[Rfam]
Nucleotides: 107
Stems, first nucleotide, its partner, number of pairs: 001107007013041001015040003021031003025078001027076002042070004047066002050062003074099001079096006
Number, partner (000 for none) and nucleotide at each position: 001107c002106u003105c004104u005103u006102a007101u008000a009000a010000a011000g012000a013041g014000a015040g016039g017038u018000g019000g020000a021031g022030g023029g024000a025078c026000u027076g028075g029023c030022c031021c032000u033000g034000u035000g036000a037000a038017a039016c040015c041013c042070g043069g044068c045067a046000a047066c048065c049000a050062g051061c052060a053000c054000a055000u056000a057000a058000g059000g060052u061051g062050c063000a064000u065048g066047g067045u068044g069043c070042u071000a072000a073000u074099u075028c076027c077000u078025g079096u080095a081094g082093g083092u084091a085000a086000u087000g088000c089000u090000g091084u092083a093082c094081c095080u096079a097000c098000g099074a100000g101007a102006u103005g104004a105003g106002a107001g

The record is a 107-nucleotide sequence from Andreesenella acetica, which matches "SAM riboswitch aptamer (S box leader)" in Rfam. Lineage of the source: Bacteria > Bacillota > Peptostreptococcales > Natronincolaceae > Andreesenella.